[Rfam]
RNA sequence: GAUAGCCAUAGAUAGUGGCGAUGUCUAACGUAGGCUCGGUAAUCAAACGGACUUCACCUAGGGUCGGGUCAUAAAGACCAUGCCAUUUGGUCGCCCACAGUACCAGCACUAACGCGCCAAUACCUAGAAACAAAAGAUGAUGUCCCAAAAUAAGACCGAGCUGUUUUGGCUCUUCCCA
Numbered sequence: 001g002a003u004a005g006c007c008a009u010a011g012a013u014a015g016u017g018g019c020g021a022u023g024u025c026u027a028a029c030g031u032a033g034g035c036u037c038g039g040u041a042a043u044c045a046a047a048c049g050g051a052c053u054u055c056a057c058c059u060a061g062g063g064u065c066g067g068g069u070c071a072u073a074a075a076g077a078c079c080a081u082g083c084c085a086u087u088u089g090g091u092c093g094c095c096c097a098c099a100g101u102a103c104c105a106g107c108a109c110u111a112a113c114g115c116g117c118c119a120a121u122a123c124c125u126a127g128a129a130a131c132a133a134a135a136g137a138u139g140a141u142g143u144c145c146c147a148a149a150a151u152a153a154g155a156c157c158g159a160g161c162u163g164u165u166u167u168g169g170c171u172c173u174u175c176c177c178a
Base pairs, nucleotide, nucleotide: 136175137174139172140171144169145168147166148165
A member of the RNA family "Antisense RNA which regulates isiA expression" from Leptolyngbya ectocarpi, 178 nucleotides long.
The match comes from Rfam's covariance-model search (82 bits).